[Rfam]
RNA: Vault RNA
RNA sequence: GAGCUAGCAAUGUAAAGCGCUUACUUCGGUAAAAAAAAUUUCUGUUCAAAAUUUUAUAUGGGUUCGAAUCCCUUAAAGUGCCUACGCAAUCUAGCUCUUUU
Numbered sequence: 001g002a003g004c005u006a007g008c009a010a011u012g013u014a015a016a017g018c019g020c021u022u023a024c025u026u027c028g029g030u031a032a033a034a035a036a037a038a039u040u041u042c043u044g045u046u047c048a049a050a051a052u053u054u055u056a057u058a059u060g061g062g063u064u065c066g067a068a069u070c071c072c073u074u075a076a077a078g079u080g081c082c083u084a085c086g087c088a089a090u091c092u093a094g095c096u097c098u099u100u101u
Base pairs, nucleotide, nucleotide: 002096003095004094005093006092007091012085013084014083017081018080019079020078025068026067027066028065029064